A member of the RNA family "Photosynthesis regulatory RNA1" from Nostoc punctiforme, 80 nucleotides long. About the family: Formerly known as Syr1 discovered in Synechocystis sp PCC 6803, is a regulatory factor controlling photosynthetic functions. A reference for the family is Georg et al. (2014), "The small regulatory RNA SyR1/PsrR1 controls photosynthetic functions in cyanobacteria", Plant Cell. The sequence is in the family's curated seed alignment.
RNA sequence: AAAAACAGAUUUCGGUAUCGCUAUAUCUCAUCGACAUUUGGACUUCUCCCAUCUACCUUGGCUAUCAAGUCGGGGUUUUU
Numbered sequence: 001a002a003a004a005a006c007a008g009a010u011u012u013c014g015g016u017a018u019c020g021c022u023a024u025a026u027c028u029c030a031u032c033g034a035c036a037u038u039u040g041g042a043c044u045u046c047u048c049c050c051a052u053c054u055a056c057c058u059u060g061g062c063u064a065u066c067a068a069g070u071c072g073g074g075g076u077u078u079u080u
Stems, first nucleotide, its partner, number of pairs: 055076008